[Rfam]
RNA sequence: AUGGAAGUGAUGAUUAUUUCCCCAGAUGAUCGAAGCUGAACAAACUGUGCGAUUUACUUUUUCUCUAAUUAGUUAGAGAUUUCAAGCCAGAACUCUGAUCCAU
Numbered sequence: 001a002u003g004g005a006a007g008u009g010a011u012g013a014u015u016a017u018u019u020c021c022c023c024a025g026a027u028g029a030u031c032g033a034a035g036c037u038g039a040a041c042a043a044a045c046u047g048u049g050c051g052a053u054u055u056a057c058u059u060u061u062u063c064u065c066u067a068a069u070u071a072g073u074u075a076g077a078g079a080u081u082u083c084a085a086g087c088c089a090g091a092a093c094u095c096u097g098a099u100c101c102a103u
Stems, first nucleotide, its partner, number of pairs: 001103005